About this RNA
The family of this 72-nucleotide RNA sequence from Colobus angolensis is "mir-3689 microRNA precursor family". The family's consensus secondary structure was predicted with RNAalifold. The organism belongs to Colobus angolensis, within Eukaryota.
RNA sequence: GGGUGGUGUGCUCCUGUGCUCGCUGGGGGGUGUGCUCCCGCGCUCCCUGGGGGGUGUGAUCUUGCGCUCCCU
Numbered sequence: 001g002g003g004u005g006g007u008g009u010g011c012u013c014c015u016g017u018g019c020u021c022g023c024u025g026g027g028g029g030g031u032g033u034g035c036u037c038c039c040g041c042g043c044u045c046c047c048u049g050g051g052g053g054g055u056g057u058g059a060u061c062u063u064g065c066g067c068u069c070c071c072u
Stems, first nucleotide, its partner, number of pairs: 001071003005067001015058004020053002023050007031042004